[Rfam]
RNA sequence: AUCUGGCUUAGUUAGGAGGCAUAAAUCAAUCUUGAUCAUCAAUACUUUACUGUAUUGUAUUGAUCUAUUUGACUUGAGGUCUUUUUGAGGAGGAGCUUUGCUUCUGCUAAGUAUCAAGCUUCUCCCAAGCAGCCUCAGACAUAU
Numbered sequence: 001a002u003c004u005g006g007c008u009u010a011g012u013u014a015g016g017a018g019g020c021a022u023a024a025a026u027c028a029a030u031c032u033u034g035a036u037c038a039u040c041a042a043u044a045c046u047u048u049a050c051u052g053u054a055u056u057g058u059a060u061u062g063a064u065c066u067a068u069u070u071g072a073c074u075u076g077a078g079g080u081c082u083u084u085u086u087g088a089g090g091a092g093g094a095g096c097u098u099u100g101c102u103u104c105u106g107c108u109a110a111g112u113a114u115c116a117a118g119c120u121u122c123u124c125c126c127a128a129g130c131a132g133c134c135u136c137a138g139a140c141a142u143a144u
Base pairs, nucleotide, nucleotide: 004021005020007018008017009016034065035064036063037062038061042058043057044056046054074138075137076136077135078134079133080132084129085128086127087126089125090124091123092122093121094120095119096118097117
Description:
The family of this 144-nucleotide RNA sequence is "Small nucleolar RNA U19".